A member of the RNA family "RT-11 RNA", 147 nucleotides long. By type it is a small RNA. Rfam's curators put it in the seed alignment.

RNA sequence: CAGCACUCCGUAAGGAGUAACUGGACUACACGCUCUUGUGCAGUGGCCUUUGGUGACAUGGUUAUAAAACUUUCAACAUGAACACGUUCCAUAGUUGAUAAUUACAGCUACAACAGCAAACUUUCGAGUUUGUGUGAAGUGGCAGUG
Numbered sequence: 001c002a003g004c005a006c007u008c009c010g011u012a013a014g015g016a017g018u019a020a021c022u023g024g025a026c027u028a029c030a031c032g033c034u035c036u037u038g039u040g041c042a043g044u045g046g047c048c049u050u051u052g053g054u055g056a057c058a059u060g061g062u063u064a065u066a067a068a069a070c071u072u073u074c075a076a077c078a079u080g081a082a083c084a085c086g087u088u089c090c091a092u093a094g095u096u097g098a099u100a101a102u103u104a105c106a107g108c109u110a111c112a113a114c115a116g117c118a119a120a121c122u123u124u125c126g127a128g129u130u131u132g133u134g135u136g137a138a139g140u141g142g143c144a145g146u147g
Stems, first nucleotide, its partner, number of pairs: 005018005045063004051058002073098005078092003082088001107143005114136002117132006
Dot-bracket structure: ....(((((....)))))..........................((((..((....)).)))).........((((((((.(.....).))).)))))........(((((..((.((((((....))))))..))..)))))....